A member of the RNA family "Plant signal recognition particle RNA" from Volvox reticuliferus, 290 nucleotides long. For this family Rfam cites "Kinship in the SRP RNA family" (Rosenblad et al., RNA Biol, 2009). The family's consensus secondary structure is taken from published work. It is annotated as a non-coding RNA gene. Taxonomically the source falls in Volvox (Eukaryota, Viridiplantae, Chlamydomonadales, Volvocaceae).
[Rfam]
RNA sequence: GCCGGGGGGAGUCACGUCCCCUUGUCACCCGAGUGGGGGCUGAUAGUUGGAAGUCACGCAUGAUUCCAUCGGUCCAGACUGUCUGCGUCGAUGGCGUGUCCGCUCUGAGCCUACAGUCGGUAACGGCCCUUCCCUGACGGGAGGUGGUCGUGACUGAUGAUUGACCCGGGACCGCGUGAGGCAGUAAUCUGAGCAGCGAACACGGGUAGCUGCGGGCGGCAGACGGGUCGCAUGCCUGAGUGGGCAUCUGGGCCACCCGAUGGGUCCUCUGCGGGGCAACCAACUGUUUU
Numbered sequence: 001g002c003c004g005g006g007g008g009g010a011g012u013c014a015c016g017u018c019c020c021c022u023u024g025u026c027a028c029c030c031g032a033g034u035g036g037g038g039g040c041u042g043a044u045a046g047u048u049g050g051a052a053g054u055c056a057c058g059c060a061u062g063a064u065u066c067c068a069u070c071g072g073u074c075c076a077g078a079c080u081g082u083c084u085g086c087g088u089c090g091a092u093g094g095c096g097u098g099u100c101c102g103c104u105c106u107g108a109g110c111c112u113a114c115a116g117u118c119g120g121u122a123a124c125g126g127c128c129c130u131u132c133c134c135u136g137a138c139g140g141g142a143g144g145u146g147g148u149c150g151u152g153a154c155u156g157a158u159g160a161u162u163g164a165c166c167c168g169g170g171a172c173c174g175c176g177u178g179a180g181g182c183a184g185u186a187a188u189c190u191g192a193g194c195a196g197c198g199a200a201c202a203c204g205g206g207u208a209g210c211u212g213c214g215g216g217c218g219g220c221a222g223a224c225g226g227g228u229c230g231c232a233u234g235c236c237u238g239a240g241u242g243g244g245c246a247u248c249u250g251g252g253c254c255a256c257c258c259g260a261u262g263g264g265u266c267c268u269c270u271g272c273g274g275g276g277c278a279a280c281c282a283a284c285u286g287u288u289u290u
Stems, first nucleotide, its partner, number of pairs: 001040003004023007028037003042288009053277002055274001058270001060268001062266002065264006071254008080246001083244002086240001093236007100226002104223004109217004114212004118156004123151006131144002134141002157162001164207005175198003182191003